Shown here is a 101-nucleotide RNA sequence from Nomascus leucogenys, a member of the family "Y RNA".
Taxonomically the source falls in Nomascus (Eukaryota, Opisthokonta, Vertebrata, Dipnotetrapodomorpha).
The base pairs follow the family's consensus structure, which is taken from published work.
Y RNAs are components of the Ro ribonucleoprotein particle (Ro RNP), in association with Ro60 and La proteins.
RNA sequence: GGCUGGUCUGAGUGUGGUGUUGUUUACAACUAAUUGAUCACAACCCCAGUUACAGAUUUCUGUGUUCCUUCACUCCCACUGCUUCACUUGAUUAGCCUUAA
Numbered sequence: 001g002g003c004u005g006g007u008c009u010g011a012g013u014g015u016g017g018u019g020u021u022g023u024u025u026a027c028a029a030c031u032a033a034u035u036g037a038u039c040a041c042a043a044c045c046c047c048a049g050u051u052a053c054a055g056a057u058u059u060c061u062g063u064g065u066u067c068c069u070u071c072a073c074u075c076c077c078a079c080u081g082c083u084u085c086a087c088u089u090g091a092u093u094a095g096c097c098u099u100a101a
Base pairs, nucleotide, nucleotide: 001097002096003095004094005093006092007091008090010089011088014085016080017079018078019077022075028066029065030064033061